[Rfam]
Record summary
Shown here is a 42-nucleotide RNA from Cytobacillus kochii, a member of the family "Ribosomal protein L19 leader". Rfam links the family to the GO term regulation of gene expression. The family's RNA type in Rfam is cis-regulatory leader. Pairs were carried over by alignment from the consensus structure, which was predicted with CMfinder.
RNA sequence: ACGAUGUUCCGCUGUAACACAAAUGGUUUGCAUGAGCGUCUU
Numbered sequence: 001a002c003g004a005u006g007u008u009c010c011g012c013u014g015u016a017a018c019a020c021a022a023a024u025g026g027u028u029u030g031c032a033u034g035a036g037c038g039u040c041u042u
Stems, first nucleotide, its partner, number of pairs: 003040007013032002016028003